[Rfam]
RNA sequence: GCACUAUACAAAAAACAAAAAUGAACAAUAUUUUAAACAAUACUUGGUGGUGGAUUAACUUACGUCGAAUGUCGUGAGCAAAUCCUGCUAUAGUAUAAUUUAAAAACAAAAUACUUAGAAAAGGCUUGUC
Dot-bracket structure: ...................................((..(((((.((.((.(...(..((((((.....)))...)))..).).)).))..)))))...)).............................

Shown here is a 130-nucleotide RNA from Flavobacterium haoranii, a member of the family "Bacteroidete tryptophan peptide leader RNA". Taxonomically the source falls in Flavobacterium (Bacteria, Bacteroidota, Flavobacteriales, Flavobacteriaceae). The family's RNA type in Rfam is cis-regulatory leader. Its family is annotated with S-adenosylmethionine metabolic process and regulation of gene expression in the Gene Ontology.